[Rfam]
RNA sequence: GCGCAAAUGAUGGAAUAUUCACUAUUCAGAAAGGAAUGAUAUGAACAAAGGAACCACUGAUGCGC
Numbered sequence: 001g002c003g004c005a006a007a008u009g010a011u012g013g014a015a016u017a018u019u020c021a022c023u024a025u026u027c028a029g030a031a032a033g034g035a036a037u038g039a040u041a042u043g044a045a046c047a048a049a050g051g052a053a054c055c056a057c058u059g060a061u062g063c064g065c
Base pairs, nucleotide, nucleotide: 001065002064003063004062005061